[Rfam]
RNA sequence: UCUGCCAACGAUGGCUAUCAAAUCAACGCUGAACCAUAACUGCAUAAGUGUCAGAACGUUUCAAGAAGCAUUGGCGUUAUACAAUGCGCCGAAAGACUGCAAAACGUAUACGGUUAAAAAUUUGGGUAAAAACUGUCAGUGAUAACGCACUGACAGUUUUUA
Numbered sequence: 001u002c003u004g005c006c007a008a009c010g011a012u013g014g015c016u017a018u019c020a021a022a023u024c025a026a027c028g029c030u031g032a033a034c035c036a037u038a039a040c041u042g043c044a045u046a047a048g049u050g051u052c053a054g055a056a057c058g059u060u061u062c063a064a065g066a067a068g069c070a071u072u073g074g075c076g077u078u079a080u081a082c083a084a085u086g087c088g089c090c091g092a093a094a095g096a097c098u099g100c101a102a103a104a105c106g107u108a109u110a111c112g113g114u115u116a117a118a119a120a121u122u123u124g125g126g127u128a129a130a131a132a133c134u135g136u137c138a139g140u141g142a143u144a145a146c147g148c149a150c151u152g153a154c155a156g157u158u159u160u161u162a
Stems, first nucleotide, its partner, number of pairs: 001055004006050002028043002031040001034125003056107006068087006075147006088097001090095001130159012
RNA: FuFi-1 RNA